[Rfam]
RNA sequence: CGGUCCGGGUGUAACUGGCGACAAAUGUGGAUCAACCACGAUGGAGCACCUGGAUAAACGGCCGGUCGCCUGGGCGAAAGAG
Numbered sequence: 001c002g003g004u005c006c007g008g009g010u011g012u013a014a015c016u017g018g019c020g021a022c023a024a025a026u027g028u029g030g031a032u033c034a035a036c037c038a039c040g041a042u043g044g045a046g047c048a049c050c051u052g053g054a055u056a057a058a059c060g061g062c063c064g065g066u067c068g069c070c071u072g073g074g075c076g077a078a079a080g081a082g
Stems, first nucleotide, its partner, number of pairs: 003055010015043001017070005027039004061075003

This 82-nucleotide RNA from Paenibacillus stellifer belongs to the Rfam family "ZMP/ZTP riboswitch aptamer (pfl RNA motif)".
It scores 59 bits against the family's covariance model.
Gene Ontology terms of the family: regulation of purine nucleotide biosynthetic process and one-carbon metabolic process.
The source organism's lineage runs through Bacteria, Bacillati, Bacilli, Paenibacillaceae and Paenibacillus.